RNA sequence: ACAAACUCCACGGGAGUUGAACUCCCGUGAAGUUGCAGUGUAAAUUUCCCAGAGAGCGAUUCUCUGGAAAAUUUGGCCUGUAACUCCACGGGAGUUCAACUCCCGUGGAGUUUUA
Numbered sequence: 001a002c003a004a005a006c007u008c009c010a011c012g013g014g015a016g017u018u019g020a021a022c023u024c025c026c027g028u029g030a031a032g033u034u035g036c037a038g039u040g041u042a043a044a045u046u047u048c049c050c051a052g053a054g055a056g057c058g059a060u061u062c063u064c065u066g067g068a069a070a071a072u073u074u075g076g077c078c079u080g081u082a083a084c085u086c087c088a089c090g091g092g093a094g095u096u097c098a099a100c101u102c103c104c105g106u107g108g109a110g111u112u113u114u115a
Stems, first nucleotide, its partner, number of pairs: 003113005009107001011105005017099003023093007033083005
Description
Shown here is a 115-nucleotide RNA from Asparagus officinalis, a member of the family "mir-998 microRNA precursor family". Lineage of the source: Eukaryota > Viridiplantae > Mesangiospermae > Asparagoideae > Asparagus. A search with the family's covariance model found it, with a score of 53 bits.